[Rfam]
RNA sequence: AAGCAGCAUCAGUACAGCGGUGGCUCCACUAAAUACGCUAUGGUGCCAUUCGCUGGCGAUGUGGCGAGA
Numbered sequence: 001a002a003g004c005a006g007c008a009u010c011a012g013u014a015c016a017g018c019g020g021u022g023g024c025u026c027c028a029c030u031a032a033a034u035a036c037g038c039u040a041u042g043g044u045g046c047c048a049u050u051c052g053c054u055g056g057c058g059a060u061g062u063g064g065c066g067a068g069a
Base pairs, nucleotide, nucleotide: 003065004064006062007061008060009059015055016054017053018052019051022047023046024045026043027042
Rfam assigns this 69-nucleotide RNA sequence from Trypanosoma cruzi to the family "Trypanosomatid snoRNA TB11Cs5H2". A reference for the family is Myslyuk et al. (2008), "Psiscan: a computational approach to identify H/ACA-like and AGA-like non-coding RNA in trypanosomatid genomes", BMC Bioinformatics. The base pairs follow the family's consensus structure, which was predicted with WAR. Rfam 15.1 lists 34 matches to the family in 20 species.